[Rfam]
A member of the RNA family "Ribosomal protein L20 leader" from Aeribacillus pallidus, 131 nucleotides long. The family's consensus secondary structure was predicted with CMfinder. Rfam classes the family as a cis-regulatory leader. Lineage of the source: Bacteria > Bacillati > Bacilli > Bacillaceae > Aeribacillus. This family is a putative r-protein leader autoregulatory structure found in B. subtilis and other low-GC Gram-positive bacteria. For this family Rfam cites "Diverse mechanisms for regulating ribosomal protein synthesis in Escherichia coli" (Zengel and Lindahl, Prog Nucleic Acid Res Mol Biol, 1994).
RNA sequence: GAGAACAAGCAGAAGCACCCGCUUCUCACCUGAUUGACGCACAUCGUUGCUGUUGACAGGUUUAUACAUUGGACAAAAAGUUCGUGUAUUCAACGUGUGGGUGCAGUGUGCGUCUACGCGUUUUUUAUUUG
Numbered sequence: 001g002a003g004a005a006c007a008a009g010c011a012g013a014a015g016c017a018c019c020c021g022c023u024u025c026u027c028a029c030c031u032g033a034u035u036g037a038c039g040c041a042c043a044u045c046g047u048u049g050c051u052g053u054u055g056a057c058a059g060g061u062u063u064a065u066a067c068a069u070u071g072g073a074c075a076a077a078a079a080g081u082u083c084g085u086g087u088a089u090u091c092a093a094c095g096u097g098u099g100g101g102u103g104c105a106g107u108g109u110g111c112g113u114c115u116a117c118g119c120g121u122u123u124u125u126u127a128u129u130u131g
Stems, first nucleotide, its partner, number of pairs: 011026006028061003036054003039050002096118010